RNA sequence: UUCUUAUCCAGAGAGGUGGAGGGACUGGCCCAAUGAAGCCUCGGCAACAGGCUUUCCAAAGCACUGUGCCAAUUCCAGCAAGCGCUAAGCUUGAAAGAUGAGAA
Numbered sequence: 001u002u003c004u005u006a007u008c009c010a011g012a013g014a015g016g017u018g019g020a021g022g023g024a025c026u027g028g029c030c031c032a033a034u035g036a037a038g039c040c041u042c043g044g045c046a047a048c049a050g051g052c053u054u055u056c057c058a059a060a061g062c063a064c065u066g067u068g069c070c071a072a073u074u075c076c077a078g079c080a081a082g083c084g085c086u087a088a089g090c091u092u093g094a095a096a097g098a099u100g101a102g103a104a
Stems, first nucleotide, its partner, number of pairs: 001104008013042005021031003025078004043070004048066002051062004074096001079093005